Rfam assigns this 147-nucleotide sequence from Physcomitrium patens to the family "MIR537 microRNA precursor family". The base pairs follow the family's consensus structure, which was predicted with RNAalifold.
[Rfam]
RNA sequence: UCAUACAUAGACUGUAGAAACACCUGAAGCUAUUGAUCUCUACUUUGUUGUAACCGAUCUUUAUGGAAAGUGCACGAAAAUGUGUAUGCUGUGAUCGCACGAUUGGUGACAUCAGUAACUUGAGGUGUUUCUACAGGCUACUUAUGC
Numbered sequence: 001u002c003a004u005a006c007a008u009a010g011a012c013u014g015u016a017g018a019a020a021c022a023c024c025u026g027a028a029g030c031u032a033u034u035g036a037u038c039u040c041u042a043c044u045u046u047g048u049u050g051u052a053a054c055c056g057a058u059c060u061u062u063a064u065g066g067a068a069a070g071u072g073c074a075c076g077a078a079a080a081u082g083u084g085u086a087u088g089c090u091g092u093g094a095u096c097g098c099a100c101g102a103u104u105g106g107u108g109a110c111a112u113c114a115g116u117a118a119c120u121u122g123a124g125g126u127g128u129u130u131c132u133a134c135a136g137g138c139u140a141c142u143u144a145u146g147c
Stems, first nucleotide, its partner, number of pairs: 002146004008140003012136014027121003031117001034114004039109002043105001045102004052095001055091001066085001068083001070081002